[Rfam]
RNA sequence: UCUAUAUAAUAGCAGCACGUAAAUAUUGGCACCAAUACUAUUGUGCUGCUUUAACAACAA
Numbered sequence: 001u002c003u004a005u006a007u008a009a010u011a012g013c014a015g016c017a018c019g020u021a022a023a024u025a026u027u028g029g030c031a032c033c034a035a036u037a038c039u040a041u042u043g044u045g046c047u048g049c050u051u052u053a054a055c056a057a058c059a060a
Stems, first nucleotide, its partner, number of pairs: 001060001005056001007054001010053001011050008020040001022039001024037005